Shown here is a 95-nucleotide RNA sequence from Peptacetobacter hominis, a member of the family "Glycine riboswitch aptamer". The match comes from Rfam's covariance-model search (66 bits). Rfam describes the family as follows. This family represents the bacterial glycine riboswitch.
RNA sequence: CAGAUUUACUCUGGAGAGUCUCCAAACAAAGGGGCGCCGAAGGUGUACGCAGGUUUAACCUGUAAUCUCUCAGGCAAAAGGACAGAGCAGUAUAG
Numbered sequence: 001c002a003g004a005u006u007u008a009c010u011c012u013g014g015a016g017a018g019u020c021u022c023c024a025a026a027c028a029a030a031g032g033g034g035c036g037c038c039g040a041a042g043g044u045g046u047a048c049g050c051a052g053g054u055u056u057a058a059c060c061u062g063u064a065a066u067c068u069c070u071c072a073g074g075c076a077a078a079a080g081g082a083c084a085g086a087g088c089a090g091u092a093u094a095g
Stems, first nucleotide, its partner, number of pairs: 006090002009087005020034004036075003039071002043069001045067001049063004
Dot-bracket structure: .....((.(((((......((((.......)))).(((((..(.(...((((.......))))...).))).))).......))))).)).....